The record is a 114-nucleotide RNA sequence from Schistosoma japonicum, which matches "Potassium channel RNA editing signal" in Rfam. The source organism's lineage runs through Eukaryota, Bilateria, Protostomia, Strigeidida and Schistosoma. A search with the family's covariance model found it, with a score of 95 bits. By type it is a cis-regulatory element.
RNA sequence: GUUGGUUAUGGUGAUAUGCGACCAGUAACUGUAUGGGGUAAAUUAAUUGGUUCAUUGUGUGCUAUAGCUGGUGUACUUACAAUUGCACUACCUGUGCCUGUUAUUGUUUCAAAU
Numbered sequence: 001g002u003u004g005g006u007u008a009u010g011g012u013g014a015u016a017u018g019c020g021a022c023c024a025g026u027a028a029c030u031g032u033a034u035g036g037g038g039u040a041a042a043u044u045a046a047u048u049g050g051u052u053c054a055u056u057g058u059g060u061g062c063u064a065u066a067g068c069u070g071g072u073g074u075a076c077u078u079a080c081a082a083u084u085g086c087a088c089u090a091c092c093u094g095u096g097c098c099u100g101u102u103a104u105u106g107u108u109u110c111a112a113a114u
Stems, first nucleotide, its partner, number of pairs: 001114002005110001008107004013102004018097003037077004049063003